Shown here is a 95-nucleotide sequence from Waltiozyma pijperi, a member of the family "Small nucleolar RNA snR57". Rfam links the family to the GO terms nucleolus and RNA processing. The organism belongs to Waltiozyma, within Eukaryota.
[Rfam]
RNA sequence: AACUAGAUGAUUAUAAAACUUUUAAUAUCUCGCUGAGGAAGUAUAUGCAGGACACAAAAAUUUUUAGGAAUUCUUCGUUUAUGAUUUUUUAAGUU
Numbered sequence: 001a002a003c004u005a006g007a008u009g010a011u012u013a014u015a016a017a018a019c020u021u022u023u024a025a026u027a028u029c030u031c032g033c034u035g036a037g038g039a040a041g042u043a044u045a046u047g048c049a050g051g052a053c054a055c056a057a058a059a060a061u062u063u064u065u066a067g068g069a070a071u072u073c074u075u076c077g078u079u080u081a082u083g084a085u086u087u088u089u090u091a092a093g094u095u
Base pairs, nucleotide, nucleotide: 001095002094003093004092
The family's RNA type in Rfam is C/D-box small nucleolar RNA.